Betaproteobacteria toxic small RNA: a 63-nucleotide RNA sequence from Massilia glaciei. Overexpression in amino aid rich medium attenuates growth, suggesting role in repressing amino acid intake and metabolism. A search with the family's covariance model found it, with a score of 54 bits. For this family Rfam cites "A vast collection of microbial genes that are toxic to bacteria" (Kimelman et al., Genome Res, 2012).
[Rfam]
RNA sequence: UGUCUCCUCUAUUCUUCUCUGAAAAAUAGAUUCAAGCCCGUUUUAGCUAGCGGGCUUUUUUUC
Numbered sequence: 001u002g003u004c005u006c007c008u009c010u011a012u013u014c015u016u017c018u019c020u021g022a023a024a025a026a027u028a029g030a031u032u033c034a035a036g037c038c039c040g041u042u043u044u045a046g047c048u049a050g051c052g053g054g055c056u057u058u059u060u061u062u063c
Stems, first nucleotide, its partner, number of pairs: 008030006015023001035056008